[Rfam]
RNA: Makes More Granules Regulator RNA (mmgR)
RNA sequence: UUUGUUUGCUUUCUUGGACGUUUCCUCCCUAAACUUGGCGGCACGAAAGUGCCGCCCUUUUUUUUGACCUGG
Numbered sequence: 001u002u003u004g005u006u007u008g009c010u011u012u013c014u015u016g017g018a019c020g021u022u023u024c025c026u027c028c029c030u031a032a033a034c035u036u037g038g039c040g041g042c043a044c045g046a047a048a049g050u051g052c053c054g055c056c057c058u059u060u061u062u063u064u065u066g067a068c069c070u071g072g
Stems, first nucleotide, its partner, number of pairs: 008019001010017002037056008